[Rfam]
RNA: miR-430 microRNA precursor family
Organism: Sparus aurata
RNA sequence: AAGAUAACCUUAAAUGGAGACACCGAUGACUUCUGUGGACAUAAGUGCUUCUCUUUGGGGUUGUCUUG
Number, nucleotide and partner (000 for none) at each position: 001a000002a000003g000004a064005u063006a062007a061008c060009c059010u058011u057012a000013a000014a055015u000016g052017g051018a050019g049020a000021c047022a046023c045024c000025g000026a042027u041028g040029a000030c000031u000032u000033c000034u000035g000036u000037g000038g000039a000040c028041a027042u026043a000044a000045g023046u022047g021048c000049u019050u018051c017052u016053c000054u000055u014056u000057g011058g010059g009060g008061u007062u006063g005064u004065c000066u000067u000068g000